[Rfam]
RNA sequence: CUUCCCAUUCAUUUGCUGCUAUAAUUUCACAAUGAUAUGAGCAGUUAUACCCAUGGAAUAAAAUAAUAUUGUGCCAUCAUAAAUUGAAACGAAGUAACCAUUUUCAUCUCUUCUGCAUCACUAGACAUUG
Number, nucleotide and partner (000 for none) at each position: 001c000002u000003u058004c000005c056006c055007a054008u053009u000010c000011a000012u000013u000014u000015g045016c044017u043018g042019c041020u040021a000022u037023a036024a000025u035026u034027u000028c000029a000030c000031a000032a000033u000034g026035a025036u023037a022038u000039g000040a020041g019042c018043a017044g016045u015046u000047a000048u000049a000050c000051c000052c000053a008054u007055g006056g005057a000058a003059u000060a000061a000062a000063a000064u000065a000066a000067u000068a000069u124070u123071g122072u000073g121074c000075c000076a118077u000078c000079a000080u115081a114082a000083a000084u000085u000086g110087a109088a000089a107090c000091g104092a103093a102094g101095u100096a000097a000098c000099c000100a095101u094102u093103u092104u091105c000106a000107u089108c000109u087110c086111u000112u000113c000114u081115g080116c000117a000118u076119c000120a000121c073122u071123a070124g069125a000126c000127a000128u000129u000130g000

Small nucleolar RNA SNORA20: a 130-nucleotide RNA from Microcebus murinus. Its family is annotated with RNA processing and nucleolus in the Gene Ontology. Clan: SNORA20 clan. Lineage of the source: Eukaryota > Euteleostomi > Boreoeutheria > Euarchontoglires > Microcebus. Pairs were carried over by alignment from the consensus structure, which was predicted with ILM.